Shown here is a 266-nucleotide sequence from Anaerosporomusa subterranea, a member of the family "raiA RNA".
[Rfam]
RNA sequence: GUUGCUUAGGUCUGUGGUUGAAAAUCGAUGCCAGUCGCAGGCGAAACGAUCCACGUAAGAAGCCCAAAGCGGCUUUGAUCAUGGUGCGGCUUAGAGAUAAGCCCUGCCGAACUGAGAAGUGGGAGGCGGAGCUGUGAUGUGUGAAAAACACUCACAACCCCUGUUCCGAAUUGGUUCGAGAGGAGUAGUAGUGAGGGGAUUGAUUUCCUAGUAGCGAACCUUCCAGCAGGCGGGUGUGGGGUCAAAGACCAGGUCGGCUAAGCAAU
Dot-bracket structure: (((((((((..((((((((........((([.(((((((.]........((...(..(((.(((......))))))..)..[)))))))))...........(((((((((((((.......................................................))))))))...((((.....((....(((......))).....))....))))..)))))....)))......]..)))))...))))))))))))
The match comes from Rfam's covariance-model search (187 bits). The family's RNA type in Rfam is riboswitch.